Rfam assigns this 87-nucleotide sequence from Centaurea solstitialis to the family "Small nucleolar RNA Z159/U59". The family has 10 seed sequences and 1,401 matches in Rfam 15.1. Rfam classes the family as a C/D-box small nucleolar RNA. A search with the family's covariance model found it, with a score of 64 bits. Its family is annotated with RNA processing and nucleolus in the Gene Ontology. Pairs were carried over by alignment from the consensus structure, which was predicted with PFOLD.
[Rfam]
RNA sequence: AUCUCUAAUGAUGAUUAAAACAUAAUAACUUUCGUUCUUCUGAAAUCAACCAUGUUGAAAGUCUAUGGAGACCUGAACUGAAGAGAU
Numbered sequence: 001a002u003c004u005c006u007a008a009u010g011a012u013g014a015u016u017a018a019a020a021c022a023u024a025a026u027a028a029c030u031u032u033c034g035u036u037c038u039u040c041u042g043a044a045a046u047c048a049a050c051c052a053u054g055u056u057g058a059a060a061g062u063c064u065a066u067g068g069a070g071a072c073c074u075g076a077a078c079u080g081a082a083g084a085g086a087u
Stems, first nucleotide, its partner, number of pairs: 003085004